RNA sequence: CCAAAGGCUCUUUUCAGAGCCACCCACAGCCUCGAGAAAAAGAGCU
Numbered sequence: 001c002c003a004a005a006g007g008c009u010c011u012u013u014u015c016a017g018a019g020c021c022a023c024c025c026a027c028a029g030c031c032u033c034g035a036g037a038a039a040a041a042g043a044g045c046u
Base pairs, nucleotide, nucleotide: 006021007020008019009018010017011016
RNA: Histone 3' UTR stem-loop
Organism: Calidris pygmaea